[Rfam]
The family of this 349-nucleotide RNA sequence from Roseobacter denitrificans is "Alphaproteobacteria transfer-messenger RNA". It is annotated as a non-coding RNA gene. About the family: Bacterial tmRNA, also known as 10Sa RNA or SsrA, is named for its dual tRNA and mRNA-like properties. Gene Ontology term of the family: RNA catabolic process. Pairs were carried over by alignment from the consensus structure, which is taken from published work. The literature on the family includes a 2003 paper in Nucleic Acids Res by Zwieb et al., "tmRDB (tmRNA database)".
RNA sequence: CCCCUUGAGGUUCGGGCGCGAUUGGCCUAUAUUCAUAGCGUCCUUCGGGACUAUGAACAUAAACGCGCUCGUAAUAAGCGGAUCGGACCCGGGGGCGGUACCCGGCGACUCCACCAAACAUCCUUCAUUUGGGGAUCAUGGGGUCGAAACAGGAUCGACGAACGUCUAAAGGGGUUUGCUUUGUUUCGGCUGUCUGCCACCGUUAUCGGCGAAACUUGUACAAUUGCAAAUGACAAUCGUGCUCCAGUUGCGAUGGCCGCGUAAGCGGUUUCAGCGACUGAAACUUAACUCCUUGGGUUUAGCGACCUAAGGCGGGGUUCGCAGGCACCUGGCAACAGAAGCCUGCACU
Numbered sequence: 001c002c003c004c005u006u007g008a009g010g011u012u013c014g015g016g017c018g019c020g021a022u023u024g025g026c027c028u029a030u031a032u033u034c035a036u037a038g039c040g041u042c043c044u045u046c047g048g049g050a051c052u053a054u055g056a057a058c059a060u061a062a063a064c065g066c067g068c069u070c071g072u073a074a075u076a077a078g079c080g081g082a083u084c085g086g087a088c089c090c091g092g093g094g095g096c097g098g099u100a101c102c103c104g105g106c107g108a109c110u111c112c113a114c115c116a117a118a119c120a121u122c123c124u125u126c127a128u129u130u131g132g133g134g135a136u137c138a139u140g141g142g143g144u145c146g147a148a149a150c151a152g153g154a155u156c157g158a159c160g161a162a163c164g165u166c167u168a169a170a171g172g173g174g175u176u177u178g179c180u181u182u183g184u185u186u187c188g189g190c191u192g193u194c195u196g197c198c199a200c201c202g203u204u205a206u207c208g209g210c211g212a213a214a215c216u217u218g219u220a221c222a223a224u225u226g227c228a229a230a231u232g233a234c235a236a237u238c239g240u241g242c243u244c245c246a247g248u249u250g251c252g253a254u255g256g257c258c259g260c261g262u263a264a265g266c267g268g269u270u271u272c273a274g275c276g277a278c279u280g281a282a283a284c285u286u287a288a289c290u291c292c293u294u295g296g297g298u299u300u301a302g303c304g305a306c307c308u309a310a311g312g313c314g315g316g317g318u319u320c321g322c323a324g325g326c327a328c329c330u331g332g333c334a335a336c337a338g339a340a341g342c343c344u345g346c347a348c349u
Base pairs, nucleotide, nucleotide: 040051041050042049043048055186056185057184058183059182065179066178067175068174069173070172079164080163083161084160085159089105090104091103092102093101106146107145108144109143110142111141112140187202188201189200193212194211196210197209198208315330316329317328318327321346322345323344324343325342326341
Dot-bracket structure: .......................................((((....))))...(((((.....((((((........((..(((...(((((.......)))))(((((((...........................)))))))............))).)).......))))..))..)))))[[[...((.(((.]]].....)))))......................................................................................................[[[[..((((((]]]]..........))))))...